[Rfam]
RNA: RpsF leader
Organism: Ferrimonas sediminicola
RNA sequence: GCCGAAACCCUUUUUGUUCCUUGCCUCUAGGUCCGGCUGAGCCUGCAAGAGGCUGAAUAACCGUAAGGAUCAAUAAUG
Numbered sequence: 001g002c003c004g005a006a007a008c009c010c011u012u013u014u015u016g017u018u019c020c021u022u023g024c025c026u027c028u029a030g031g032u033c034c035g036g037c038u039g040a041g042c043c044u045g046c047a048a049g050a051g052g053c054u055g056a057a058u059a060a061c062c063g064u065a066a067g068g069a070u071c072a073a074u075a076a077u078g
Stems, first nucleotide, its partner, number of pairs: 016071001018069005023053006030043003